[Rfam]
A member of the RNA family "c-di-AMP riboswitch aptamer (ydaO/yuaA leader)" from Pristimantibacillus lignocellulolyticus, 175 nucleotides long. Lineage of the source: Bacteria > Bacilli > Caryophanales > Paenibacillaceae > Pristimantibacillus (SeqCode).
RNA sequence: AAUGUUUUAACGCUGAGUCCUGUGAAUAACGGGAGCGGGGGAACCAACAGAGUAGAUAGAUGUUAAUUACGUCUAUGAAGCUCCUGGGGUGAAUCGCUUGGCUUGUAGCCAAGUGUAGGGCGACUCUCAAGCCCGAAUCCGACAGCUAACCUCGUAAGCGUACUUGAGAGAGGCG
Numbered sequence: 001a002a003u004g005u006u007u008u009a010a011c012g013c014u015g016a017g018u019c020c021u022g023u024g025a026a027u028a029a030c031g032g033g034a035g036c037g038g039g040g041g042a043a044c045c046a047a048c049a050g051a052g053u054a055g056a057u058a059g060a061u062g063u064u065a066a067u068u069a070c071g072u073c074u075a076u077g078a079a080g081c082u083c084c085u086g087g088g089g090u091g092a093a094u095c096g097c098u099u100g101g102c103u104u105g106u107a108g109c110c111a112a113g114u115g116u117a118g119g120g121c122g123a124c125u126c127u128c129a130a131g132c133c134c135g136a137a138u139c140c141g142a143c144a145g146c147u148a149a150c151c152u153c154g155u156a157a158g159c160g161u162a163c164u165u166g167a168g169a170g171a172g173g174c175g
Base pairs, nucleotide, nucleotide: 011160012159013158014157018034019033020032021031022030023029035155036154037153038152039151040150045086046085087140088139089138095115096114097113098112099111100110118134119133120132121131
From the family's description: This family represents a conserved RNA structure found upstream of the ydaO and yuaA genes in Bacillus subtilis and related genes in other bacteria.
Its family is annotated with regulation of gene expression and cyclic-di-AMP binding in the Gene Ontology.